[Rfam]
RNA sequence: UGACGGGGACCCGCACAAGCAGUGGAGCAUGUGGUUUAAUUCGAUGCAACGCGAAGAACCUUACCCAGACUUGACAUGCAAAAGACAGCUUUAGAGAUAAAGUGUUCCUUAGGGACUUUUGCACAGGUGCUGCAUGGCUGUCGUCAGCUCGUGCCGUGAGGUGUUGGGUUAAGUCCCGCAACGAGCGCAACCCUUAUCAUUAGUUGCCAACACGUGAAGGUGGGAACUCUAGUGAGACUGCCUGGGUUAACCAGGAGGAAGGUGAGGAUGACGUCAAGUCCGCAUGGCCCUUAUGUCUGGGGCUACACACGUGCUACAAUGGUCGGUACAGAAGGCAGCAAAGCCGCGAGGUGAAGCAAAUCCCAAAAAGCCGAUCUCAGUUCAGAUUGUAGUCUGCAACUCGACUACAUGAAGAUGGAAUUGCUAGUAAUGGCGAGUCAGCAACAUCGCCGUGAAUACGUUCCCGGGUCUUGUACACACCGCCCGUCACAUCAUGGGAGUUGGUUUUACCCGAAGCCGCUGACUUAACCGCAAGGGGAGAAGCGUCGAAGGUGAGGCUGAUGACUGGGAUGAAGUCGUAACAAGG
Numbered sequence: 001u002g003a004c005g006g007g008g009a010c011c012c013g014c015a016c017a018a019g020c021a022g023u024g025g026a027g028c029a030u031g032u033g034g035u036u037u038a039a040u041u042c043g044a045u046g047c048a049a050c051g052c053g054a055a056g057a058a059c060c061u062u063a064c065c066c067a068g069a070c071u072u073g074a075c076a077u078g079c080a081a082a083a084g085a086c087a088g089c090u091u092u093a094g095a096g097a098u099a100a101a102g103u104g105u106u107c108c109u110u111a112g113g114g115a116c117u118u119u120u121g122c123a124c125a126g127g128u129g130c131u132g133c134a135u136g137g138c139u140g141u142c143g144u145c146a147g148c149u150c151g152u153g154c155c156g157u158g159a160g161g162u163g164u165u166g167g168g169u170u171a172a173g174u175c176c177c178g179c180a181a182c183g184a185g186c187g188c189a190a191c192c193c194u195u196a197u198c199a200u201u202a203g204u205u206g207c208c209a210a211c212a213c214g215u216g217a218a219g220g221u222g223g224g225a226a227c228u229c230u231a232g233u234g235a236g237a238c239u240g241c242c243u244g245g246g247u248u249a250a251c252c253a254g255g256a257g258g259a260a261g262g263u264g265a266g267g268a269u270g271a272c273g274u275c276a277a278g279u280c281c282g283c284a285u286g287g288c289c290c291u292u293a294u295g296u297c298u299g300g301g302g303c304u305a306c307a308c309a310c311g312u313g314c315u316a317c318a319a320u321g322g323u324c325g326g327u328a329c330a331g332a333a334g335g336c337a338g339c340a341a342a343g344c345c346g347c348g349a350g351g352u353g354a355a356g357c358a359a360a361u362c363c364c365a366a367a368a369a370g371c372c373g374a375u376c377u378c379a380g381u382u383c384a385g386a387u388u389g390u391a392g393u394c395u396g397c398a399a400c401u402c403g404a405c406u407a408c409a410u411g412a413a414g415a416u417g418g419a420a421u422u423g424c425u426a427g428u429a430a431u432g433g434c435g436a437g438u439c440a441g442c443a444a445c446a447u448c449g450c451c452g453u454g455a456a457u458a459c460g461u462u463c464c465c466g467g468g469u470c471u472u473g474u475a476c477a478c479a480c481c482g483c484c485c486g487u488c489a490c491a492u493c494a495u496g497g498g499a500g501u502u503g504g505u506u507u508u509a510c511c512c513g514a515a516g517c518c519g520c521u522g523a524c525u526u527a528a529c530c531g532c533a534a535g536g537g538g539a540g541a542a543g544c545g546u547c548g549a550a551g552g553u554g555a556g557g558c559u560g561a562u563g564a565c566u567g568g569g570a571u572g573a574a575g576u577c578g579u580a581a582c583a584a585g586g
Stems, first nucleotide, its partner, number of pairs: 001477002003474003007471007015461002019424005024317001026315008034306002040055004064301007077123002080120005088103006106115003126290002129288004135284002137279003140275001142273002147186006153162003165178004192267004197235007207224002211222003238258002241255005321376007334363002338357002343352003383414001388409007430453007480585001482582001485578002490572004495567003500562012516547001518545004524540003529536002